[Rfam]
Shown here is a 158-nucleotide sequence from Fulvimarina manganoxydans, a member of the family "speF leader". This family is a putative regulatory RNA structure that is found upstream of the speF gene encoding ornithine decarboxylase in Agrobacterium tumefaciens and other alpha-proteobacteria. On this family, see del Val et al., RNA Biol 2012: "A survey of sRNA families in alpha-proteobacteria".
RNA sequence: UCCCGGUCUCCACAGCCGGGAUUACUGAAGAGGCACACCUUCUUUGCCUGAAGUGCGGCGGGUCCAAGCCCUCCAAUCCAUGGCAGACCGAUAAGCCGAACGCCGCUGGCCUUUUGUCGCCGGCUUUCGGACCAAUCGCGUCGCGCGAGCCCUGUCUC
Numbered sequence: 001u002c003c004c005g006g007u008c009u010c011c012a013c014a015g016c017c018g019g020g021a022u023u024a025c026u027g028a029a030g031a032g033g034c035a036c037a038c039c040u041u042c043u044u045u046g047c048c049u050g051a052a053g054u055g056c057g058g059c060g061g062g063u064c065c066a067a068g069c070c071c072u073c074c075a076a077u078c079c080a081u082g083g084c085a086g087a088c089c090g091a092u093a094a095g096c097c098g099a100a101c102g103c104c105g106c107u108g109g110c111c112u113u114u115u116g117u118c119g120c121c122g123g124c125u126u127u128c129g130g131a132c133c134a135a136u137c138g139c140g141u142c143g144c145g146c147g148a149g150c151c152c153u154g155u156c157u158c
Stems, first nucleotide, its partner, number of pairs: 001021007032048004055141003082097002105124005